[Rfam]
RNA sequence: CGCUCACUGCCAUGUUCUGCUGACUUGCGUCAGCAACAUGCCCAGGUCGUCACGGUCUUCAAGACGACGACGCGGUUCCGACCGCGUUGAUCACCCCAGUUCGCACCGGCAUCCAUGCGCGAACGGCCAUCGGUUCUCGAUGGCGAUGC
Numbered sequence: 001c002g003c004u005c006a007c008u009g010c011c012a013u014g015u016u017c018u019g020c021u022g023a024c025u026u027g028c029g030u031c032a033g034c035a036a037c038a039u040g041c042c043c044a045g046g047u048c049g050u051c052a053c054g055g056u057c058u059u060c061a062a063g064a065c066g067a068c069g070a071c072g073c074g075g076u077u078c079c080g081a082c083c084g085c086g087u088u089g090a091u092c093a094c095c096c097c098a099g100u101u102c103g104c105a106c107c108g109g110c111a112u113c114c115a116u117g118c119g120c121g122a123a124c125g126g127c128c129a130u131c132g133g134u135u136c137u138c139g140a141u142g143g144c145g146a147u148g149c
Stems, first nucleotide, its partner, number of pairs: 011040004016035001019034006046068006054092004069088007119149003126144008
Rfam assigns this 149-nucleotide RNA sequence from Pseudideonella sakaiensis to the family "radC RNA".
The family's RNA type in Rfam is cis-regulatory element.
It scores 120 bits against the family's covariance model.
The organism belongs to Pseudideonella, within Bacteria.
The base pairs follow the family's consensus structure, which is taken from published work.